A member of the RNA family "mir-130 microRNA precursor family" from Synaphobranchus kaupii, 82 nucleotides long.
A reference for the family is Houbaviy et al. (2003), "Embryonic stem cell-specific MicroRNAs", Dev Cell.
Nucleotides: 082
Base pairs, nucleotide, nucleotide: 001082002081003080005077007076008075009074012071013070014069015068016067017066018065019064022061023059024058025057026056027055028054029053030052
Number, partner (000 for none) and nucleotide at each position: 001082u002081g003080u004000u005077g006000u007076c008075c009074g010000u011000u012071g013070c014069c015068c016067u017066u018065u019064u020000u021000c022061u023059g024058u025057u026056g027055u028054a029053c030052u031000a032000c033000u034000a035000g036000a037000a038000a039000a040000u041000c042000a043000g044000a045000u046000a047000g048000u049000a050000g051000c052030a053029g054028u055027g056026c057025a058024a059023u060000u061022a062000u063000u064019a065018a066017a067016a068015g069014g070013g071012c072000a073000u074009u075008g076007g077005c078000u079000g080003a081002c082001a
Lineage of the source: Eukaryota > Opisthokonta > Vertebrata > Anguilliformes > Synaphobranchus.